RNA sequence: GCCGAGCUCAGUUGCGAGAGCUUGUAACCCAAGUGGGGGCAUUAAGGUGGUGCGGACGCUGUUGUAGCGCUGCAAGCCUGUUCCUGGUGUGCUACUGUUGGCCAGCCCGUUCCAAGUUGAGUAGUGGACCGCUUGGGGCCUAUGCGAAAGUUGGGCCUCACGGUCCAUAAUGUGGCAGGCACCGCGUGAGGCUGGCUUCACAGAGCAGCGACAACUGCCCGCUUCCAACGGUGGAAGGAUAACGGGCCGCUGCACUCCUAGGCCGCUUGGGCCUCGUACCCUACUCCAGUGAACCAUCAUUUUU
Numbered sequence: 001g002c003c004g005a006g007c008u009c010a011g012u013u014g015c016g017a018g019a020g021c022u023u024g025u026a027a028c029c030c031a032a033g034u035g036g037g038g039g040c041a042u043u044a045a046g047g048u049g050g051u052g053c054g055g056a057c058g059c060u061g062u063u064g065u066a067g068c069g070c071u072g073c074a075a076g077c078c079u080g081u082u083c084c085u086g087g088u089g090u091g092c093u094a095c096u097g098u099u100g101g102c103c104a105g106c107c108c109g110u111u112c113c114a115a116g117u118u119g120a121g122u123a124g125u126g127g128a129c130c131g132c133u134u135g136g137g138g139c140c141u142a143u144g145c146g147a148a149a150g151u152u153g154g155g156c157c158u159c160a161c162g163g164u165c166c167a168u169a170a171u172g173u174g175g176c177a178g179g180c181a182c183c184g185c186g187u188g189a190g191g192c193u194g195g196c197u198u199c200a201c202a203g204a205g206c207a208g209c210g211a212c213a214a215c216u217g218c219c220c221g222c223u224u225c226c227a228a229c230g231g232u233g234g235a236a237g238g239a240u241a242a243c244g245g246g247c248c249g250c251u252g253c254a255c256u257c258c259u260a261g262g263c264c265g266c267u268u269g270g271g272c273c274u275c276g277u278a279c280c281c282u283a284c285u286c287c288a289g290u291g292a293a294c295c296a297u298c299a300u301u302u303u304u
Base pairs, nucleotide, nucleotide: 001040002039003038004023005022006021007020008019009018028037029036030035044303045302046301047300048299049298050297051296052295054294057291058290059289060288061287064284065283066282067281071278072277073276075274076273078271079270080264082262083261086258087257089255090254091253093252094251099249100248101247102246103245105243107238108237110236111235112234113233114232116229117228118227119226121225123223124222125221126166127165128164129163130162131161134160135159136158137157138156139155140154141153142152144151145150174219175218176217177216178215185210186209187208192203193202194201
The record is a 304-nucleotide RNA from Triticum aestivum, which matches "Plant signal recognition particle RNA" in Rfam. Rfam 15.1 lists 4,988 matches to the family in 266 species. By type it is a non-coding RNA gene. Pairs were carried over by alignment from the consensus structure, which is taken from published work.